[Rfam]
Rfam assigns this 61-nucleotide RNA from Evansella caseinilytica to the family "Bacillaceae-1 RNA". The source organism's lineage runs through Bacteria, Bacillota, Bacilli, Caryophanales and Evansella. By type it is a small RNA. The base pairs follow the family's consensus structure, which is taken from published work.
Nucleotides: 061
Base pairs, nucleotide, nucleotide: 003044004043005042006041007040008039009038019033020032021031022030023029049059050058051057
Number, partner (000 for none) and nucleotide at each position: 001000a002000a003044u004043u005042c006041c007040g008039c009038u010000u011000a012000a013000g014000u015000a016000c017000c018000a019033c020032u021031c022030a023029c024000g025000u026000c027000c028000u029023g030022u031021g032020a033019g034000u035000a036000a037000c038009a039008g040007c041006g042005g043004a044003a045000u046000g047000u048000c049059g050058u051057c052000a053000u054000c055000c056000u057051g058050a059049c060000u061000c